[Rfam]
RNA sequence: AAAAGGAGCAAUAACCCCCUUCUUGUUCUAGCAAGAGGGCGGUAUUGUUCCCCCU
Numbered sequence: 001a002a003a004a005g006g007a008g009c010a011a012u013a014a015c016c017c018c019c020u021u022c023u024u025g026u027u028c029u030a031g032c033a034a035g036a037g038g039g040c041g042g043u044a045u046u047g048u049u050c051c052c053c054c055u
Stems, first nucleotide, its partner, number of pairs: 005051009015041001020037006
A member of the RNA family "Plastid-psbA-3 3UTR RNA" from Lobelia niihauensis, 55 nucleotides long. Pairs were carried over by alignment from the consensus structure, which was predicted with LocARNA. About the family: Plastid psbA-3 is a non-coding RNA (ncRNA) present in plastids. It was identified in inverted repeat sequences in the 3 prime untranslate region (3UTR) of photosystem II quinone-binding protein (psbA). Lineage of the source: Eukaryota > Spermatophyta > asterids > Campanulaceae > Lobelia. By type it is a cis-regulatory element. Its Rfam clan is "Plastid-psbA 3UTR RNA clan". For this family Rfam cites "Retrograde signaling in plants: A critical review focusing on the GUN pathway and beyond" (Richter et al., Plant Commun, 2023).